[Rfam]
RNA sequence: GGACCGCUUCUCAUGGAAGAACCCGAAGGGUGAAAAGGCCAUACGGACAGCCGGGUCAUAAGCCGA
Numbered sequence: 001g002g003a004c005c006g007c008u009u010c011u012c013a014u015g016g017a018a019g020a021a022c023c024c025g026a027a028g029g030g031u032g033a034a035a036a037g038g039c040c041a042u043a044c045g046g047a048c049a050g051c052c053g054g055g056u057c058a059u060a061a062g063c064c065g066a
Stems, first nucleotide, its partner, number of pairs: 002057004007032001008030004
RNA: Streptococcus sRNA SpF59 (ldcC RNA)